[Rfam]
RNA sequence: GCUACGCCCGGAUGAACUUCCCAGCUCGGCCGACAUAACACUGGUCGGUGGGAUCUUCGUCCGUUUGUAUC
Numbered sequence: 001g002c003u004a005c006g007c008c009c010g011g012a013u014g015a016a017c018u019u020c021c022c023a024g025c026u027c028g029g030c031c032g033a034c035a036u037a038a039c040a041c042u043g044g045u046c047g048g049u050g051g052g053a054u055c056u057u058c059g060u061c062c063g064u065u066u067g068u069a070u071c
Base pairs, nucleotide, nucleotide: 003069004068005067006066009063010062011061012060013059014058015057019053020052021051024049027047028046029045030044031043
RNA: mir-278 microRNA precursor family